[Rfam]
RNA sequence: AGGUUGUGAGAUAGACUUACCUCCCCGUGGUGCAACCUGGGCAACGUAUAAUCAUACGGCUAAAAAGUCUAU
Numbered sequence: 001a002g003g004u005u006g007u008g009a010g011a012u013a014g015a016c017u018u019a020c021c022u023c024c025c026c027g028u029g030g031u032g033c034a035a036c037c038u039g040g041g042c043a044a045c046g047u048a049u050a051a052u053c054a055u056a057c058g059g060c061u062a063a064a065a066a067g068u069c070u071a072u
Stems, first nucleotide, its partner, number of pairs: 001038007019031003045058005

Notes: This 72-nucleotide RNA from Rodentolepis nana belongs to the Rfam family "HDV ribozyme from F. prausnitzii". For this family Rfam cites "Widespread occurrence of self-cleaving ribozymes" (Webb et al., Science, 2009). Pairs were carried over by alignment from the consensus structure, which is taken from published work. It scores 46 bits against the family's covariance model. Rfam links the family to the GO term catalytic activity. Lineage of the source: Eukaryota > Eumetazoa > Bilateria > Rhabditophora > Rodentolepis.